[Rfam]
Rfam assigns this 112-nucleotide sequence from Olea europaea to the family "Plastid-psbA-1 3UTR RNA".
RNA sequence: UUGAAGUUUCAUCAAUAACAUGAUCAUAUUGUAUAGGAAUUAGUGAAAAAAAUAAAAAUAAAGGAGCGAUAAAUUCUUUCUUGUUCUAUCAAGAGGGCAUUAUUGCUCCUUU
Numbered sequence: 001u002u003g004a005a006g007u008u009u010c011a012u013c014a015a016u017a018a019c020a021u022g023a024u025c026a027u028a029u030u031g032u033a034u035a036g037g038a039a040u041u042a043g044u045g046a047a048a049a050a051a052a053u054a055a056a057a058a059u060a061a062a063g064g065a066g067c068g069a070u071a072a073a074u075u076c077u078u079u080c081u082u083g084u085u086c087u088a089u090c091a092a093g094a095g096g097g098c099a100u101u102a103u104u105g106c107u108c109c110u111u112u
Stems, first nucleotide, its partner, number of pairs: 008026001009023004060112013076097001078095005
A search with the family's covariance model found it, with a score of 66 bits.